[Rfam]
RNA sequence: UAGACAGAUUAUUGGUCUGUAUUCACGGCGUGAAACAGGGGAUUACACUGUUUUUAAACGAAAAGUGUAUCAAGUAACAUAAUAGACUCCU
Numbered sequence: 001u002a003g004a005c006a007g008a009u010u011a012u013u014g015g016u017c018u019g020u021a022u023u024c025a026c027g028g029c030g031u032g033a034a035a036c037a038g039g040g041g042a043u044u045a046c047a048c049u050g051u052u053u054u055u056a057a058a059c060g061a062a063a064a065g066u067g068u069a070u071c072a073a074g075u076a077a078c079a080u081a082a083u084a085g086a087c088u089c090c091u
Stems, first nucleotide, its partner, number of pairs: 003089002009085003012077002015075002018072002021070002024067003029060003032054007
RNA: MIR6152 microRNA precursor family